Shown here is a 600-nucleotide part of an RNA from Parabacteroides chinchillae, a member of the family "Bacterial large subunit ribosomal RNA". NCBI's taxonomy places the organism under Bacteria, Pseudomonadati, Bacteroidales, Tannerellaceae, Parabacteroides. Rfam links the family to the GO terms structural constituent of ribosome and ribosome. The match comes from Rfam's covariance-model search (2761 bits). The family's consensus secondary structure is taken from published work.
RNA sequence: UAGUAUCGGUGAAGAUGCCGAUUACCCGCGAUGGGACGAAAAGACCCCGUGAACCUUUACUAUAGCUUUACAUUGAGUUUGGGCAAUUGAUGUGUAGGAUAGGCCGGAGACAAAGAAUCAGGUACGCCAGUAUUUGUGGAGUCAUCGUUGAAAUACGGCCCUUUGAUUGUUUGAGUUCUAACCCGCAAAAUGUGGGGACACUGUAUGGUGGGUAGUUUGACUGGGGUGGUCGCCUCCAAAAGUGUAACGGAGGCUUCUAAAGGUACCCUCAGACCGAUUGGUAACCGGUCGCAGAGUGUAAUGGCAUAAGGGUGCUUGACUGAGAGACCCACAAGUCGAUCAGGUAGGAAACUAGAGCAUAGUGAUCCGGUGGUUCCGCAUGGAAGGGCCAUCGCUCAAAGGAUAAAAGGUACUCCGGGGAUAACAGGCUGAUCGCUCCCAAGAGCUCAUAUCGACGGAGCGGUUUGGCACCUCGAUGUCGGCUCGUCACAUCCUGGGGCUGGAGAAGGUCCCAAGGGUUGGGCUGUUCGCCCAUUAAAGUGGCACGCGAGCUGGGUUCAGAACGUCGUGAGACAGUUCGGUCUCUAUCUAUCGUGGGCG
Numbered sequence: 001u002a003g004u005a006u007c008g009g010u011g012a013a014g015a016u017g018c019c020g021a022u023u024a025c026c027c028g029c030g031a032u033g034g035g036a037c038g039a040a041a042a043g044a045c046c047c048c049g050u051g052a053a054c055c056u057u058u059a060c061u062a063u064a065g066c067u068u069u070a071c072a073u074u075g076a077g078u079u080u081g082g083g084c085a086a087u088u089g090a091u092g093u094g095u096a097g098g099a100u101a102g103g104c105c106g107g108a109g110a111c112a113a114a115g116a117a118u119c120a121g122g123u124a125c126g127c128c129a130g131u132a133u134u135u136g137u138g139g140a141g142u143c144a145u146c147g148u149u150g151a152a153a154u155a156c157g158g159c160c161c162u163u164u165g166a167u168u169g170u171u172u173g174a175g176u177u178c179u180a181a182c183c184c185g186c187a188a189a190a191u192g193u194g195g196g197g198a199c200a201c202u203g204u205a206u207g208g209u210g211g212g213u214a215g216u217u218u219g220a221c222u223g224g225g226g227u228g229g230u231c232g233c234c235u236c237c238a239a240a241a242g243u244g245u246a247a248c249g250g251a252g253g254c255u256u257c258u259a260a261a262g263g264u265a266c267c268c269u270c271a272g273a274c275c276g277a278u279u280g281g282u283a284a285c286c287g288g289u290c291g292c293a294g295a296g297u298g299u300a301a302u303g304g305c306a307u308a309a310g311g312g313u314g315c316u317u318g319a320c321u322g323a324g325a326g327a328c329c330c331a332c333a334a335g336u337c338g339a340u341c342a343g344g345u346a347g348g349a350a351a352c353u354a355g356a357g358c359a360u361a362g363u364g365a366u367c368c369g370g371u372g373g374u375u376c377c378g379c380a381u382g383g384a385a386g387g388g389c390c391a392u393c394g395c396u397c398a399a400a401g402g403a404u405a406a407a408a409g410g411u412a413c414u415c416c417g418g419g420g421a422u423a424a425c426a427g428g429c430u431g432a433u434c435g436c437u438c439c440c441a442a443g444a445g446c447u448c449a450u451a452u453c454g455a456c457g458g459a460g461c462g463g464u465u466u467g468g469c470a471c472c473u474c475g476a477u478g479u480c481g482g483c484u485c486g487u488c489a490c491a492u493c494c495u496g497g498g499g500c501u502g503g504a505g506a507a508g509g510u511c512c513c514a515a516g517g518g519u520u521g522g523g524c525u526g527u528u529c530g531c532c533c534a535u536u537a538a539a540g541u542g543g544c545a546c547g548c549g550a551g552c553u554g555g556g557u558u559c560a561g562a563a564c565g566u567c568g569u570g571a572g573a574c575a576g577u578u579c580g581g582u583c584u585c586u587a588u589c590u591a592u593c594g595u596g597g598g599c600g
Base pairs, nucleotide, nucleotide: 005022006021007020008019009018025598026597027596028595029594030593031592032591034590035589036588038585039584046419047418048417049416051415052414053411054410055409056408057407059216060215061214062213066208067207069205070204071203072202075178076177077176078175079174080173081172082171083170084169085168086167087166088165089164090163092161102160103159104158105157106156109143110142111141119136120135121134122133123132124131125130182196183195184194185193186192219231220230221229222228232254233253234252235251236250237249255400257357258356263315264314265313266312267311268310269295270294272290273289274288275287276286296305297304320343321342322341323340326337327336328335345354346353347352368394369393370392371391372390373389374388376387377386428469429468430467432466433463434462435461436460437459438458439457443453444452480555481553482552483551484550485547486544487543488542489541490540493518494517496513497512498511499510500509501508520534521533522532523531524530561579562578563577564576565574566573567572